Shown here is an 87-nucleotide RNA from Pongo pygmaeus, a member of the family "mir-1304 microRNA precursor family". Its family is annotated with miRNA-mediated post-transcriptional gene silencing and RISC complex in the Gene Ontology. Rfam's curators put it in the seed alignment. Pairs were carried over by alignment from the consensus structure, which was predicted with RNAalifold.

RNA sequence: AACACUUAAGCCCAGCAGUUCGAGGCUACAGUGAGAUGUGAUCCUGCCGCAUCCCACUGUAGCCUCGAACCCCUGGGCUCAAGCGAU
Numbered sequence: 001a002a003c004a005c006u007u008a009a010g011c012c013c014a015g016c017a018g019u020u021c022g023a024g025g026c027u028a029c030a031g032u033g034a035g036a037u038g039u040g041a042u043c044c045u046g047c048c049g050c051a052u053c054c055c056a057c058u059g060u061a062g063c064c065u066c067g068a069a070c071c072c073c074u075g076g077g078c079u080c081a082a083g084c085g086a087u
Base pairs, nucleotide, nucleotide: 003085005083006082007081009079010078011077012076013075014074015073018070019069020068021067022066023065024064025063026062027061028060029059030058031057032056033055035053036052037051038050039049040048